[Rfam]
RNA sequence: CUCUUUCUCUCUUCAACGGAUCUGUGCCCGGCGAUCCUCUGCCGCCCCGGCGGUUAGGGUCGAUUGCUGAGGCAGUUCGGUGAGCAAAGGAGCCAUCUACCCUCCAUGAUGUCAAUGUCCAGCCGACAGAUCCAAGAUCGAUAGAACUCCGAGGAUCCUCGUUCGCCGUAAAAGGCUUGAGCGAGGUGAACCGGAAGUUCAAGACGCUAUAUUCCAGACCGUUCGCCGAGACCGUCGGUCUCUGAGGCUGGGGAAAACCAUGGCUGGUCCUACAUUU
Numbered sequence: 001c002u003c004u005u006u007c008u009c010u011c012u013u014c015a016a017c018g019g020a021u022c023u024g025u026g027c028c029c030g031g032c033g034a035u036c037c038u039c040u041g042c043c044g045c046c047c048c049g050g051c052g053g054u055u056a057g058g059g060u061c062g063a064u065u066g067c068u069g070a071g072g073c074a075g076u077u078c079g080g081u082g083a084g085c086a087a088a089g090g091a092g093c094c095a096u097c098u099a100c101c102c103u104c105c106a107u108g109a110u111g112u113c114a115a116u117g118u119c120c121a122g123c124c125g126a127c128a129g130a131u132c133c134a135a136g137a138u139c140g141a142u143a144g145a146a147c148u149c150c151g152a153g154g155a156u157c158c159u160c161g162u163u164c165g166c167c168g169u170a171a172a173a174g175g176c177u178u179g180a181g182c183g184a185g186g187u188g189a190a191c192c193g194g195a196a197g198u199u200c201a202a203g204a205c206g207c208u209a210u211a212u213u214c215c216a217g218a219c220c221g222u223u224c225g226c227c228g229a230g231a232c233c234g235u236c237g238g239u240c241u242c243u244g245a246g247g248c249u250g251g252g253g254a255a256a257a258c259c260a261u262g263g264c265u266g267g268u269c270c271u272a273c274a275u276u277u
Base pairs, nucleotide, nucleotide: 018133019132020131021130022129023128024127025126026073027072028071029069030068031067033065034064035063036062037059038058039057040056041055042053043052044051045050081125082124089113090112092110094108146198147197148196157186158185159184160183161182162181163180164179165178166175167174203269204268205267206264207263208262209261210260219253220252222250225248226247227246230240231239232238233237

Description
This 277-nucleotide RNA from Thermothelomyces thermophilus belongs to the Rfam family "A. fumigatus sRNA Afu_309". The family's consensus secondary structure was predicted with WAR. The match comes from Rfam's covariance-model search (150 bits). Rfam classes the family as a small RNA.